[Rfam]
RNA: Nitrogen stress-induced RNA 1
RNA sequence: UGGUAGAUGCACCCUGAUAGAUAACCUUCGCCGUAAUUGGUGGAGGUUUUUUUU
Numbered sequence: 001u002g003g004u005a006g007a008u009g010c011a012c013c014c015u016g017a018u019a020g021a022u023a024a025c026c027u028u029c030g031c032c033g034u035a036a037u038u039g040g041u042g043g044a045g046g047u048u049u050u051u052u053u054u
Base pairs, nucleotide, nucleotide: 002013003012004011025046026045027044028043029042030041031040032039033038